[Rfam]
RNA sequence: GAAAGCGAGGAGGUACAUAUGAAACGGUCGCCAGUGGUUAAGUUUUAUCAACAGUAUUUUACCGCAACCCAAAGUGUUUCUGCUGGAUGGCUGGCUCGCCUGACAGCAUCGCAACGUCUUAGGAUGCUUGAGGACUUAAUGCAGUGGGAGGUGACAACUUCCGUGACCGUGAAGUACUGACUCGUUGAUACAUGUGUGACUGAGAAUUGGUGAUGUUCACCUGGCCAGCAGAUUGUUACUGCUGGCUUUUUUA
Numbered sequence: 001g002a003a004a005g006c007g008a009g010g011a012g013g014u015a016c017a018u019a020u021g022a023a024a025c026g027g028u029c030g031c032c033a034g035u036g037g038u039u040a041a042g043u044u045u046u047a048u049c050a051a052c053a054g055u056a057u058u059u060u061a062c063c064g065c066a067a068c069c070c071a072a073a074g075u076g077u078u079u080c081u082g083c084u085g086g087a088u089g090g091c092u093g094g095c096u097c098g099c100c101u102g103a104c105a106g107c108a109u110c111g112c113a114a115c116g117u118c119u120u121a122g123g124a125u126g127c128u129u130g131a132g133g134a135c136u137u138a139a140u141g142c143a144g145u146g147g148g149a150g151g152u153g154a155c156a157a158c159u160u161c162c163g164u165g166a167c168c169g170u171g172a173a174g175u176a177c178u179g180a181c182u183c184g185u186u187g188a189u190a191c192a193u194g195u196g197u198g199a200c201u202g203a204g205a206a207u208u209g210g211u212g213a214u215g216u217u218c219a220c221c222u223g224g225c226c227a228g229c230a231g232a233u234u235g236u237u238a239c240u241g242c243u244g245g246c247u248u249u250u251u252u253a
Stems, first nucleotide, its partner, number of pairs: 001191001002189001005185005031148002034145001035143002037140009048131003052126002065093002068090001099122001102119001106115001160180002224246008
Rfam assigns this 253-nucleotide RNA sequence from Buttiauxella agrestis to the family "SgrS RNA".
Pairs were carried over by alignment from the consensus structure, which was predicted with RNAalifold.
It is annotated as an antisense RNA.
In sugar transport-related sRNA (SgrS) is induced under conditions of glucose phosphate stress in E.coli. This small RNA acts to negatively regulate the translation and stability of the ptsG mRNA, which encodes the major glucose transporter in E. coli. SgrS forms a specific ribonucleoprotein complex with RNAse E and the chaperone Hfq and acts by base pairing with the ptsG mRNA. The crucial base-pairs for action of SgrS are confined to the 6 nt region overlapping the Shine-Dalgarno sequence of the ptsG mRNA.
For this family Rfam cites "The novel transcription factor SgrR coordinates the response to glucose-phosphate stress" (Vanderpool and Gottesman, J Bacteriol, 2007).
The match comes from Rfam's covariance-model search (78 bits).